[Rfam]
This 133-nucleotide RNA sequence from Cavia porcellus belongs to the Rfam family "Small nucleolar RNA SNORA1". ACA1 is a member of the H/ACA class of snoRNA that guide the sites of modification of uridines to pseudouridines.
RNA sequence: AGCCUCAUUCUAGAUUAGAAUGCGCAUGGUUGAUUGCUGUCCAAAACUGGUCAUUGUGGCUAAAAUUGAGACACACAAGUCAUGCUUCCAUCAGUAAAUGUUUACAGUGAUGACAGUAAGACCUGUAACAUUU
Numbered sequence: 001a002g003c004c005u006c007a008u009u010c011u012a013g014a015u016u017a018g019a020a021u022g023c024g025c026a027u028g029g030u031u032g033a034u035u036g037c038u039g040u041c042c043a044a045a046a047c048u049g050g051u052c053a054u055u056g057u058g059g060c061u062a063a064a065a066u067u068g069a070g071a072c073a074c075a076c077a078a079g080u081c082a083u084g085c086u087u088c089c090a091u092c093a094g095u096a097a098a099u100g101u102u103u104a105c106a107g108u109g110a111u112g113a114c115a116g117u118a119a120g121a122c123c124u125g126u127a128a129c130a131u132u133u
Stems, first nucleotide, its partner, number of pairs: 002060003006056002021043002024040003075126003079122001089112005
Notes
A search with the family's covariance model found it, with a score of 90 bits.